Overview
Shown here is a 76-nucleotide RNA from Propithecus coquereli, a member of the family "mir-320 microRNA precursor family". A search with the family's covariance model found it, with a score of 82 bits.
[Rfam]
Nucleotides: 076
Stems, first nucleotide, its partner, number of pairs: 014059005021052005029044003033040002
Number, partner (000 for none) and nucleotide at each position: 001000a002000u003000u004000a005000g006000u007000a008000g009000c010000g011000g012000c013000c014059u015058u016057c017056u018055c019000u020000u021052c022051c023050c024049a025048g026000u027000u028000c029044u030043u031042c032000c033040u034039g035000g036000a037000g038000u039034c040033a041000a042031g043030a044029a045000a046000a047000g048025c049024u050023g051022g052021g053000u054000u055018g056017a057016g058015a059014g060000g061000g062000c063000g064000u065000u066000a067000a068000a069000u070000a071000a072000a073000u074000a075000a076000a
NCBI's taxonomy places the organism under Eukaryota, Chordata, Amniota, Lemuriformes, Propithecus.
The family has 38 seed sequences and 659 matches in Rfam 15.1.